[Rfam]
RNA: mir-2 microRNA precursor family
Organism: Homarus americanus
RNA sequence: UGUCUCACAAAGUGGUUGUUCUAUGUGGUAGUUCAUCAUAUCACAGCCAGCUUUGAUGAGCGAGG
Numbered sequence: 001u002g003u004c005u006c007a008c009a010a011a012g013u014g015g016u017u018g019u020u021c022u023a024u025g026u027g028g029u030a031g032u033u034c035a036u037c038a039u040a041u042c043a044c045a046g047c048c049a050g051c052u053u054u055g056a057u058g059a060g061c062g063a064g065g
Base pairs, nucleotide, nucleotide: 005059006058007057008055009054010053011052012051013049014048015047016046017045018044019043024040025039026038